The family of this 299-nucleotide RNA sequence from Oppiella nova is "Metazoan signal recognition particle RNA". Rfam links the family to the GO terms SRP-dependent cotranslational protein targeting to membrane, signal sequence recognition and signal recognition particle, endoplasmic reticulum targeting. Taxonomically the source falls in Oppiella (Eukaryota, Protostomia, Chelicerata, Oppiidae). A search with the family's covariance model found it, with a score of 239 bits. On this family, see Batey et al., J Mol Biol 2001: "Structural and energetic analysis of RNA recognition by a universally conserved protein from the signal recognition particle".
RNA sequence: GCCGGGGGUAGUGGCGCACUCCUGUAAUUCCAGUGACUGGAAGGCAAAAUACGGUGGAUGGGCAGUGACUGGGGGUUCUGAGCGCAUGUUCUCUAUGCCGAUCGGGUGUCCGCACUAAGCUUUGCGUCAAUAUGGGGGUGCGGGGGGAGCCCUGCCCUUCCAGGUUGACUAAUGAGGAGCGUAUAGGCCCAGGGCGGAGACGCAGCAGGCAAAAGUUCCCGCGUUUAGCAGUAGUGGGUUCGCGCCCGUGAAUAGGCACUUGCGAUCAGCCCAGUCGUCCGGUCCGGACCCGUACUUUU
Numbered sequence: 001g002c003c004g005g006g007g008g009u010a011g012u013g014g015c016g017c018a019c020u021c022c023u024g025u026a027a028u029u030c031c032a033g034u035g036a037c038u039g040g041a042a043g044g045c046a047a048a049a050u051a052c053g054g055u056g057g058a059u060g061g062g063c064a065g066u067g068a069c070u071g072g073g074g075g076u077u078c079u080g081a082g083c084g085c086a087u088g089u090u091c092u093c094u095a096u097g098c099c100g101a102u103c104g105g106g107u108g109u110c111c112g113c114a115c116u117a118a119g120c121u122u123u124g125c126g127u128c129a130a131u132a133u134g135g136g137g138g139u140g141c142g143g144g145g146g147g148a149g150c151c152c153u154g155c156c157c158u159u160c161c162a163g164g165u166u167g168a169c170u171a172a173u174g175a176g177g178a179g180c181g182u183a184u185a186g187g188c189c190c191a192g193g194g195c196g197g198a199g200a201c202g203c204a205g206c207a208g209g210c211a212a213a214a215g216u217u218c219c220c221g222c223g224u225u226u227a228g229c230a231g232u233a234g235u236g237g238g239u240u241c242g243c244g245c246c247c248g249u250g251a252a253u254a255g256g257c258a259c260u261u262g263c264g265a266u267c268a269g270c271c272c273a274g275u276c277g278u279c280c281g282g283u284c285c286g287g288a289c290c291c292g293u294a295c296u297u298u299u
Base pairs, nucleotide, nucleotide: 001045002044003043004023005022006021007020008019009018028042029041030040047297048296050294051293052292053291054290059286060285061284062283063282065278066277067276068275069274070273071272072271073270078269079268080267081266083264084263085262086261088259089258092256093255094254095253096252098250103248104247105246106245107244108243109242110238111237113236114235115234116233117232119229120228121227124224125223126222127221128167129166130165131164133162134161135160136159137158138157140155141154142153143152144151145150176219177218178217179216180215187210188209189208194203195202196201